[Rfam]
RNA sequence: CCAGUUCUUCGGGGUAGGGUGAAAAUCCCAACCGGCGGUGAUGCGAUUUUUAAAUCGACGAGCCCGCGACCCAUAGUGUACGCACUAUGGCUGACUUGGUGUGAUUCCAGGGCCGACGGUAAAGUCCGGAUGGGAGAAGAACGAA
Numbered sequence: 001c002c003a004g005u006u007c008u009u010c011g012g013g014g015u016a017g018g019g020u021g022a023a024a025a026u027c028c029c030a031a032c033c034g035g036c037g038g039u040g041a042u043g044c045g046a047u048u049u050u051u052a053a054a055u056c057g058a059c060g061a062g063c064c065c066g067c068g069a070c071c072c073a074u075a076g077u078g079u080a081c082g083c084a085c086u087a088u089g090g091c092u093g094a095c096u097u098g099g100u101g102u103g104a105u106u107c108c109a110g111g112g113c114c115g116a117c118g119g120u121a122a123a124g125u126c127c128g129g130a131u132g133g134g135a136g137a138a139g140a141a142c143g144a145a
Stems, first nucleotide, its partner, number of pairs: 004142007017029003031125002033115002035067004062113002071090002095111005117128003

This 145-nucleotide RNA from Exiguobacterium artemiae belongs to the Rfam family "FMN riboswitch aptamer (RFN element)".
Lineage of the source: Bacteria > Bacillota > Bacilli > Caryophanales > Exiguobacterium artemiae.
The family's consensus secondary structure is taken from published work.
Rfam links the family to the GO term FMN binding.